This 63-nucleotide sequence from Haemonchus contortus belongs to the Rfam family "mir-72 microRNA precursor family".
The family's consensus secondary structure was predicted with RNAalifold.
NCBI's taxonomy places the organism under Eukaryota, Ecdysozoa, Rhabditomorpha, Strongyloidea, Haemonchus.
[Rfam]
RNA sequence: GCAAGGCAAGAUGUUGGCAUAGCUGAACUGCAGUUUCUCAGCUAUGCUACAUGAGGCCACGCA
Numbered sequence: 001g002c003a004a005g006g007c008a009a010g011a012u013g014u015u016g017g018c019a020u021a022g023c024u025g026a027a028c029u030g031c032a033g034u035u036u037c038u039c040a041g042c043u044a045u046g047c048u049a050c051a052u053g054a055g056g057c058c059a060c061g062c063a
Stems, first nucleotide, its partner, number of pairs: 005058003011052004016048003022042005
Rfam 15.1 lists 75 matches to the family in 67 species.